[Rfam]
RNA sequence: UUAAUCGGAAUAGCGCCUGAGCAGUACACGCGUACUGUUGACGAGGAGGACAGCGAUCGAACUUUCGGCGGAUGCUGUCCCGGAUACUGAAGUAUUCGUAAGUGUAUCUGUUAAAAUUUCCGGGCAACCGGACUGACAAAGCAGAUAUCCCACAGAACU
Numbered sequence: 001u002u003a004a005u006c007g008g009a010a011u012a013g014c015g016c017c018u019g020a021g022c023a024g025u026a027c028a029c030g031c032g033u034a035c036u037g038u039u040g041a042c043g044a045g046g047a048g049g050a051c052a053g054c055g056a057u058c059g060a061a062c063u064u065u066c067g068g069c070g071g072a073u074g075c076u077g078u079c080c081c082g083g084a085u086a087c088u089g090a091a092g093u094a095u096u097c098g099u100a101a102g103u104g105u106a107u108c109u110g111u112u113a114a115a116a117u118u119u120c121c122g123g124g125c126a127a128c129c130g131g132a133c134u135g136a137c138a139a140a141g142c143a144g145a146u147a148u149c150c151c152a153c154a155g156a157a158c159u
Stems, first nucleotide, its partner, number of pairs: 020039008048080005057068004081098006104148006119132005
RNA: glmS glucosamine-6-phosphate activated ribozyme aptamer